[Rfam]
RNA sequence: UGGACAGAUUAUUGUAUUCGAUUAUAUUCACGACGUGGAAUAGGGGAUUACACUGUUUUAAAUGGAAAAUGAAUAAAUUAACAUAAUAGACUCAU
Numbered sequence: 001u002g003g004a005c006a007g008a009u010u011a012u013u014g015u016a017u018u019c020g021a022u023u024a025u026a027u028u029c030a031c032g033a034c035g036u037g038g039a040a041u042a043g044g045g046g047a048u049u050a051c052a053c054u055g056u057u058u059u060a061a062a063u064g065g066a067a068a069a070u071g072a073a074u075a076a077a078u079u080a081a082c083a084u085a086a087u088a089g090a091c092u093c094a095u
Stems, first nucleotide, its partner, number of pairs: 003093002009089007017081002020079002023076001026074005034064003037059007
Dot-bracket structure: ..((....(((((((.((.((.(..(((((...((((((((((.........)))))))..))).....))))).).)))).)))))))..))..
This 95-nucleotide RNA sequence from Nicotiana sylvestris belongs to the Rfam family "MIR6152 microRNA precursor family". Gene Ontology terms of the family: miRNA-mediated post-transcriptional gene silencing and RISC complex. The family has 2 seed sequences and 5,807 matches in Rfam 15.1. Lineage of the source: Eukaryota > eudicotyledons > Gunneridae > Nicotianeae > Nicotiana.